[Rfam]
Shown here is a 137-nucleotide sequence from Erinaceus europaeus, a member of the family "Small nucleolar RNA SNORA8". The family's consensus secondary structure was predicted with RNAfold. Taxonomically the source falls in Erinaceus (Eukaryota, Opisthokonta, Gnathostomata, Sarcopterygii). About the family: ACA8 is a member of the H/ACA class of snoRNA that guide the sites of modification of uridines to pseudouridines. The family is grouped with related families in Rfam's "SNORA8 clan". It is annotated as an H/ACA-box small nucleolar RNA. Rfam links the family to the GO terms nucleolus and RNA processing.
RNA sequence: AGCACUGCAUGGUAUCUGCACUCAGUGGCGUGUCCUGCUGGGUGUUCAAAGGACAGUGCGACAUGAAUUCAGUGUCUGGCAUCGUUGGUUUUCUUGGCUUUGUGCAUGUGAAACCUGGUAUUUUUACUGAUACAGAU
Number, nucleotide and partner (000 for none) at each position: 001a000002g059003c058004a057005c056006u055007g054008c000009a000010u000011g000012g000013u000014a000015u052016c051017u050018g045019c044020a043021c042022u041023c040024a039025g038026u037027g036028g035029c000030g000031u000032g000033u000034c000035c028036u027037g026038c025039u024040g023041g022042g021043u020044g019045u018046u000047c000048a000049a000050a017051g016052g015053a000054c007055a006056g005057u004058g003059c002060g000061a000062c000063a125064u000065g123066a122067a121068u120069u118070c117071a116072g115073u000074g000075u000076c000077u000078g000079g105080c104081a103082u102083c000084g000085u000086u000087g000088g000089u000090u000091u000092u000093c000094u000095u000096g000097g000098c000099u000100u000101u000102g082103u081104g080105c079106a000107u000108g000109u000110g000111a000112a000113a000114c000115c072116u071117g070118g069119u000120a068121u067122u066123u065124u000125u063126a000127c000128u000129g000130a000131u000132a000133c000134a000135g000136a000137u000